This 98-nucleotide RNA from Methylomonas sp. DH-1 belongs to the Rfam family "t44 RNA". The base pairs follow the family's consensus structure, which was predicted with LocARNA. It is annotated as a small RNA. About the family: This family consists of a number of bacterial RNA genes of between 135 and 170 bases in length. The t44 gene has been identified in several species of enteric bacteria but homologs have also been identified in Pseudomonas and Coxiella species.

[Rfam]
RNA sequence: UUCACUAUGUAAUCAAUACUCACACUUGUCGACACGGUCGGUGGGGUGCCGAAAACCUUGGGUUUACGGUCACUGGUCGGGGCGGGUGGAGGCGUAAC
Numbered sequence: 001u002u003c004a005c006u007a008u009g010u011a012a013u014c015a016a017u018a019c020u021c022a023c024a025c026u027u028g029u030c031g032a033c034a035c036g037g038u039c040g041g042u043g044g045g046g047u048g049c050c051g052a053a054a055a056c057c058u059u060g061g062g063u064u065u066a067c068g069g070u071c072a073c074u075g076g077u078c079g080g081g082g083c084g085g086g087u088g089g090a091g092g093c094g095u096a097a098c
Stems, first nucleotide, its partner, number of pairs: 023088008035079009048070004